Overview: Eukaryotic small subunit ribosomal RNA: a 592-nucleotide part of an RNA from Aedes aegypti. NCBI's taxonomy places the organism under Eukaryota, Metazoa, Mandibulata, Allotriocarida, Stegomyia.

RNA sequence: CGGUUAAAACGUUCGAAGUUUAUUCUUGUCCAACACGGGUGCUACUCCUAAUGAUGGCAGUAGGUCACUGGAUUGUUGCGACUAUAAGACUGGGUGCGCCCGUCGGUCCUCGCGGCCGGCGCGGUCGUAGUGUGGCGCUGAUGCCUUUCAUCGGGUGCAGUGUUUUCCGCAAGCCCAGCUGCUAUUACCUUGAACAAAUUAGAGUGCUCUAAGCAGGCUAUCCUACGGCCGAGAAUAAUCUUGCAUGGAAUAAUGGAAUAUGACCUCGGUCUUAAUAUUCAUUGGUUUGUAAUCAGAUCAAGAGGUAAUGAUUAACAGAAGUAGUUGGGGGCAUUAGUAUUACGGCGCGAGAGGUGAAAUUCGUAGACCGUCGUAAGACUAACUAAAGCGAAAGCAUUUGCCAUGGAUGCUUUCAUUAAUCAAGAACGAAAGUUAGAGGAUCGAAGGCGAUUAGAUACCGCCCUAGUUCUAACCGUAAACUAUGCCAAUUAGCAAUUGGGAGACGCUACAUUAUGGUGCUCUCAGUAGCUUCCGGGAAACCAAAAUUAGGUUCCGGGGGAAGUAUGGUUGCAAAGUUGAAACUUAAAGGAAU
Numbered sequence: 001c002g003g004u005u006a007a008a009a010c011g012u013u014c015g016a017a018g019u020u021u022a023u024u025c026u027u028g029u030c031c032a033a034c035a036c037g038g039g040u041g042c043u044a045c046u047c048c049u050a051a052u053g054a055u056g057g058c059a060g061u062a063g064g065u066c067a068c069u070g071g072a073u074u075g076u077u078g079c080g081a082c083u084a085u086a087a088g089a090c091u092g093g094g095u096g097c098g099c100c101c102g103u104c105g106g107u108c109c110u111c112g113c114g115g116c117c118g119g120c121g122c123g124g125u126c127g128u129a130g131u132g133u134g135g136c137g138c139u140g141a142u143g144c145c146u147u148u149c150a151u152c153g154g155g156u157g158c159a160g161u162g163u164u165u166u167c168c169g170c171a172a173g174c175c176c177a178g179c180u181g182c183u184a185u186u187a188c189c190u191u192g193a194a195c196a197a198a199u200u201a202g203a204g205u206g207c208u209c210u211a212a213g214c215a216g217g218c219u220a221u222c223c224u225a226c227g228g229c230c231g232a233g234a235a236u237a238a239u240c241u242u243g244c245a246u247g248g249a250a251u252a253a254u255g256g257a258a259u260a261u262g263a264c265c266u267c268g269g270u271c272u273u274a275a276u277a278u279u280c281a282u283u284g285g286u287u288u289g290u291a292a293u294c295a296g297a298u299c300a301a302g303a304g305g306u307a308a309u310g311a312u313u314a315a316c317a318g319a320a321g322u323a324g325u326u327g328g329g330g331g332c333a334u335u336a337g338u339a340u341u342a343c344g345g346c347g348c349g350a351g352a353g354g355u356g357a358a359a360u361u362c363g364u365a366g367a368c369c370g371u372c373g374u375a376a377g378a379c380u381a382a383c384u385a386a387a388g389c390g391a392a393a394g395c396a397u398u399u400g401c402c403a404u405g406g407a408u409g410c411u412u413u414c415a416u417u418a419a420u421c422a423a424g425a426a427c428g429a430a431a432g433u434u435a436g437a438g439g440a441u442c443g444a445a446g447g448c449g450a451u452u453a454g455a456u457a458c459c460g461c462c463c464u465a466g467u468u469c470u471a472a473c474c475g476u477a478a479a480c481u482a483u484g485c486c487a488a489u490u491a492g493c494a495a496u497u498g499g500g501a502g503a504c505g506c507u508a509c510a511u512u513a514u515g516g517u518g519c520u521c522u523c524a525g526u527a528g529c530u531u532c533c534g535g536g537a538a539a540c541c542a543a544a545a546u547u548a549g550g551u552u553c554c555g556g557g558g559g560a561a562g563u564a565u566g567g568u569u570g571c572a573a574a575g576u577u578g579a580a581a582c583u584u585a586a587a588g589g590a591a592u
Base pairs, nucleotide, nucleotide: 001555002554003553009552011427012426013425014424018420019419020418318414319413320412321411322409323408325406326405330402331401332400333399336380337379340376341375342374343373344372345371346370347369351362352361353360388395389394432473433472434471435470436469437468442466446462447461448460449459484551485550486549487547488546489545491530492529493528496525497524498523499522500521501520502519505517506516507515534541535540557584558583559582566577567576568575569574

The family has 90 seed sequences and 75,755 matches in Rfam 15.1. The base pairs follow the family's consensus structure, which is taken from published work. It is one of the family's seed sequences.